Source information
Rfam assigns this 192-nucleotide RNA from Lipingzhangella halophila to the family "Actinobacteria sRNA Ms_IGR-5". For this family Rfam cites "Identification of small RNAs in Mycobacterium smegmatis using heterologous Hfq" (Li et al., RNA, 2013). The family's RNA type in Rfam is small RNA. It scores 84 bits against the family's covariance model.
RNA sequence: ACGCAGGAAAGGAGGUGGUCCGAACAGUGAAUGCUUUGAGGACGUGCGAGGUGUCCGUCCGUUAGGGCGACCCAGGAAGCCGGAUCGCGCUAGCGAAUCCACAUCGGACACCCAGACCCCCGGGCCGCCGGAACUUGUCCGUCCGGCCCCGAGCGCCACGCGCCGGGAGCCAUGCCCGGGGGUCCGUCAUGU
Numbered sequence: 001a002c003g004c005a006g007g008a009a010a011g012g013a014g015g016u017g018g019u020c021c022g023a024a025c026a027g028u029g030a031a032u033g034c035u036u037u038g039a040g041g042a043c044g045u046g047c048g049a050g051g052u053g054u055c056c057g058u059c060c061g062u063u064a065g066g067g068c069g070a071c072c073c074a075g076g077a078a079g080c081c082g083g084a085u086c087g088c089g090c091u092a093g094c095g096a097a098u099c100c101a102c103a104u105c106g107g108a109c110a111c112c113c114a115g116a117c118c119c120c121c122g123g124g125c126c127g128c129c130g131g132a133a134c135u136u137g138u139c140c141g142u143c144c145g146g147c148c149c150c151g152a153g154c155g156c157c158a159c160g161c162g163c164c165g166g167g168a169g170c171c172a173u174g175c176c177c178g179g180g181g182g183u184c185c186g187u188c189a190u191g192u
Stems, first nucleotide, its partner, number of pairs: 014059005060095006067088004072083002113186001115184011127147006